[Rfam]
RNA sequence: AUCGUUCAAUUUAAGAGAUAUCUUAAAUCGGAAGUAAGUCAUUGACUGAAGGAACGCAUG
Numbered sequence: 001a002u003c004g005u006u007c008a009a010u011u012u013a014a015g016a017g018a019u020a021u022c023u024u025a026a027a028u029c030g031g032a033a034g035u036a037a038g039u040c041a042u043u044g045a046c047u048g049a050a051g052g053a054a055c056g057c058a059u060g
Stems, first nucleotide, its partner, number of pairs: 003056005009028008031057001037047003
A member of the RNA family "Glutamine riboswitch aptamer (glnA leader)", 60 nucleotides long.